[Rfam]
RNA: Archaeal large subunit ribosomal RNA, nucleotides 645 to 908
Organism: Haloquadratum sp. J07HQX50
RNA sequence: GAGUGUAUCUACCCGACGAGUCUAACUGGUCAACCCAGGCAGGCGCAGGGAACCCGACAUGGCCGCAGUCCACACGGACCAGGGCCGCCGUACUUCAAUGCGGGGAGUCAGGUGGAUACGACCCGAAACCGAGUGAUCUACGCGCGGGCAAGGUGAAGCGUGGCGAAAGCUGCGUGGAGGCCUGCUAGAGAUGGUGUCCUACAAUACCCUCUCGUGACCCGUGUGUAGGGGUGAAAGGCCCAUCGAACUCGGCAACAGCUGGUU
Number, nucleotide and partner (000 for none) at each position: 001g000002a000003g000004u000005g119006u118007a117008u116009c115010u114011a113012c112013c111014c000015g109016a108017c107018g000019a000020g044021u043022c042023u041024a000025a000026c038027u037028g036029g035030u000031c000032a000033a000034c000035c029036c028037a027038g026039g000040c000041a023042g022043g021044c020045g000046c000047a000048g055049g054050g000051a000052a000053c000054c049055c048056g000057a000058c000059a000060u000061g086062g085063c084064c083065g000066c000067a000068g079069u078070c077071c076072a000073c000074a000075c000076g071077g070078a069079c068080c000081a000082g000083g064084g063085c062086c061087g000088c000089c102090g101091u100092a099093c000094u000095u000096c000097a000098a000099u092100g091101c090102g089103g000104g000105g000106a000107g017108u016109c015110a000111g013112g012113u011114g010115g009116a008117u007118a006119c005120g000121a000122c262123c261124c000125g259126a000127a000128a000129c252130c251131g250132a249133g248134u247135g000136a000137u000138c228139u227140a226141c225142g224143c223144g222145c221146g220147g219148g218149c216150a000151a183152g182153g181154u180155g000156a000157a000158g175159c174160g173161u172162g171163g170164c169165g000166a000167a000168a000169g164170c163171u162172g161173c160174g159175u158176g000177g000178a000179g000180g154181c153182c152183u151184g000185c000186u000187a000188g213189a212190g211191a210192u000193g209194g208195u000196g207197u206198c000199c000200u000201a000202c000203a000204a000205u000206a197207c196208c194209c193210u191211c190212u189213c188214g000215u000216g149217a000218c148219c147220c146221g145222u144223g143224u142225g141226u140227a139228g138229g000230g240231g239232u238233g000234a000235a000236a000237g000238g232239c231240c230241c000242a000243u000244c000245g000246a000247a134248c133249u132250c131251g130252g129253c000254a000255a000256c000257a000258g000259c125260u000261g123262g122263u000264u000